[Rfam]
RNA: Plastid-psbA-3 3UTR RNA
Organism: Perilla frutescens
RNA sequence: UAAGGAGCAAUAAACCUUCUUUUGAUAGAACAAGAGGGGGUUUAUUGCUCCUUCAUUU
Numbered sequence: 001u002a003a004g005g006a007g008c009a010a011u012a013a014a015c016c017u018u019c020u021u022u023u024g025a026u027a028g029a030a031c032a033a034g035a036g037g038g039g040g041u042u043u044a045u046u047g048c049u050c051c052u053u054c055a056u057u058u
Stems, first nucleotide, its partner, number of pairs: 002053011013041001019036006